A member of the RNA family "BsrG" from Sporosarcina sp. Marseille-Q4063, 277 nucleotides long. Gene Ontology terms of the family: autolysis and toxin activity. A reference for the family is Saito et al. (2008), "Novel small RNA-encoding genes in the intergenic regions of Bacillus subtilis", Gene. Lineage of the source: Bacteria > Bacillota > Bacilli > Caryophanales > Sporosarcina. Rfam describes the family as follows. bsrE, bsrG and bsrH pair through intermolecular interactions with antisense sRNAs. They form type I toxin/antitoxin system that includes an mRNA encoding for a short, toxic peptide (bsrE, bsrG and bsrH) and an antitoxin that is comprised of an antisense RNA. bsrG encodes a 39-amino-acid toxin, and the 180 nucleotide antisense sRNA called SR4 acts as the antitoxin (they overlap by 123 nucleotides). SR4 interaction with the 3'UTR of bsrG RNA promotes bsrG degradation and inhibits its translation. BsrG interferes with cell envelope biosynthesis, causes membrane invaginations and delocalisation of the cell wall synthesis and initiates autolysis. bsrE RNA encodes 30 amino-acid toxin peptide.
Nucleotides: 277
Stems, first nucleotide, its partner, number of pairs: 001250005007244002013222004018184008027174003035056002037053005065153001067151003078115003124147006195214002225237003255277009
Number, partner (000 for none) and nucleotide at each position: 001250u002249u003248c004247a005246a006000u007244a008243g009000a010000a011000a012000a013222g014221g015220u016219u017000a018184c019183u020182c021181a022180a023179g024178g025177g026000u027174g028173g029172u030000c031000g032000g033000c034000a035056c036055a037053c038052u039051c040050c041049u042000u043000u044000u045000u046000g047000a048000a049041a050040g051039g052038a053037g054000g055036u056035g057000a058000u059000g060000c061000c062000a063000a064000u065153g066000u067151c068150a069149g070000u071000a072000u073000u074000u075000g076000a077000a078115a079114c080113a081000u082000u083000a084000a085000u086000g087000u088000u089000u090000g091000c092000a093000g094000u095000u096000a097000c098000a099000u100000u101000c102000g103000c104000a105000g106000c107000a108000u109000u110000a111000g112000u113080u114079g115078u116000a117000g118000c119000a120000a121000u122000a123000a124147g125146g126145a127144a128143g129142g130000a131000u132000g133000a134000a135000g136000u137000a138000c139000a140000a141000u142129c143128c144127u145126u146125c147124c148000c149069c150068u151067g152000u153065c154000a155000u156000g157000u158000a159000a160000c161000c162000a163000u164000a165000a166000a167000a168000a169000a170000u171000a172029a173028c174027c175000c176000a177025u178024c179023c180022u181021u182020g183019a184018g185000u186000u187000g188000a189000g190000c191000g192000c193000u194000c195214a196213g197000a198000u199000g200000g201000g202000u203000u204000a205000u206000u207000a208000c209000u210000a211000c212000c213196u214195u215000c216000g217000a218000u219016a220015g221014c222013c223000g224000a225237c226236c227235c228000c229000u230000u231000u232000a233000g234000a235227g236226g237225g238000a239000c240000c241000u242000a243008c244007u245000a246005u247004u248003g249002g250001a251000u252000u253000g254000c255277u256276g257275c258274u259273c260272g261271a262270u263269a264000c265000c266000a267000u268000a269263u270262a271261u272260c273259g274258g275257g276256c277255a